[Rfam]
RNA sequence: GCCUGGAUGGCCCUCAGGGGUCUGGGGUGCAGGCUUCAAACCUGUAGCUGUCUACCCACAGAGUGGCUCAACUCCACCUUUUGGGU
Numbered sequence: 001g002c003c004u005g006g007a008u009g010g011c012c013c014u015c016a017g018g019g020g021u022c023u024g025g026g027g028u029g030c031a032g033g034c035u036u037c038a039a040a041c042c043u044g045u046a047g048c049u050g051u052c053u054a055c056c057c058a059c060a061g062a063g064u065g066g067c068u069c070a071a072c073u074c075c076a077c078c079u080u081u082u083g084g085g086u
Base pairs, nucleotide, nucleotide: 001086002085003084004083005082006081007080009078012027013026014025015024016023017022028046029045030044031043032042033041048061049060050059051058063077064076065075066074
This 86-nucleotide RNA sequence from Semnornis frantzii belongs to the Rfam family "Selenocysteine transfer RNA". The match comes from Rfam's covariance-model search (57 bits).